Background:
The record is a 94-nucleotide RNA sequence from Canis lupus, which matches "mir-8799 microRNA precursor family" in Rfam. The family has 7 seed sequences and 20,638 matches in Rfam 15.1. The source organism's lineage runs through Eukaryota, Deuterostomia, Caniformia, Canidae and Canis lupus.
[Rfam]
RNA sequence: GGGUGGAGGCCGGAUCCUGGGCUGUGUCCCCGGCGCCCAGUGCUCCCGGGCCUGCGCUGUUGGGUUCGCGCUCCCAGCAGUGGAGCCGCCACCU
Numbered sequence: 001g002g003g004u005g006g007a008g009g010c011c012g013g014a015u016c017c018u019g020g021g022c023u024g025u026g027u028c029c030c031c032g033g034c035g036c037c038c039a040g041u042g043c044u045c046c047c048g049g050g051c052c053u054g055c056g057c058u059g060u061u062g063g064g065u066u067c068g069c070g071c072u073c074c075c076a077g078c079a080g081u082g083g084a085g086c087c088g089c090c091a092c093c094u
Base pairs, nucleotide, nucleotide: 001094002093003092004091005090006089009086010085011083013081016077019074020073021072023070024069025068026067028064029063030062031059032058033057034056035055036054040052042051043050044049